[Rfam]
RNA: Small nucleolar RNA R38
RNA sequence: CUGAGCCUGUGAUGUGCUGUUAUCCCUGUCUGACACUCAGCUUGAGGAGAAAAUGUCCACUGAGGCUCAG
Dot-bracket structure: (((((((........................................................)))))))